[Rfam]
RNA sequence: UCUCCCGCUUUUCCUCCCUGAGCGGGUACCUUAAUUCCCAUUAAGGUAGCUUUACCCCCGGUUUUAUUCCCCUUUAACCGGGGGUUCUUUCU
Numbered sequence: 001u002c003u004c005c006c007g008c009u010u011u012u013c014c015u016c017c018c019u020g021a022g023c024g025g026g027u028a029c030c031u032u033a034a035u036u037c038c039c040a041u042u043a044a045g046g047u048a049g050c051u052u053u054a055c056c057c058c059c060g061g062u063u064u065u066a067u068u069c070c071c072c073u074u075u076a077a078c079c080g081g082g083g084g085u086u087c088u089u090u091c092u
Stems, first nucleotide, its partner, number of pairs: 004026006028047007055084008